[Rfam]
Background:
This 120-nucleotide RNA from Clostridiales bacterium oral taxon 876 belongs to the Rfam family "Ribosomal protein L20 leader". About the family: This family is a putative r-protein leader autoregulatory structure found in B. subtilis and other low-GC Gram-positive bacteria. It is located in the 5' untranslated regions of mRNAs encoding initiation factor 3 followed by ribosomal proteins L35 and L20 (infC-rpmI-rplT). A Rho-independent transcription terminator structure that is probably involved in regulation is included at the 3' end. The family's consensus secondary structure was predicted with CMfinder.
RNA sequence: AUUGUUAAGAAGAAACAGCCGUUUCUCACCUUACAGCAUUGCUAGUAGGGUUUUUGAUAAGUCAACUAUUACUAUAAAUUGACUAUUAGAGGACGGCAUAUGCCGUCCUUUUUUAUAUAC
Numbered sequence: 001a002u003u004g005u006u007a008a009g010a011a012g013a014a015a016c017a018g019c020c021g022u023u024u025c026u027c028a029c030c031u032u033a034c035a036g037c038a039u040u041g042c043u044a045g046u047a048g049g050g051u052u053u054u055u056g057a058u059a060a061g062u063c064a065a066c067u068a069u070u071a072c073u074a075u076a077a078a079u080u081g082a083c084u085a086u087u088a089g090a091g092g093a094c095g096g097c098a099u100a101u102g103c104c105g106u107c108c109u110u111u112u113u114u115a116u117a118u119a120c
Stems, first nucleotide, its partner, number of pairs: 011026006028051003033046002036042002092107006